[Rfam]
RNA: chrB-a RNA
RNA sequence: UUCAUGGGGACUGCGGUCUCCCCAUGAGGCUACGGCUCAAGCAUCGCGUCCUGAUCAAUCCGGCAACGGAGGACGCGCCAUG
Dot-bracket structure: ....((((((........)))))).....................((((((...................))))))......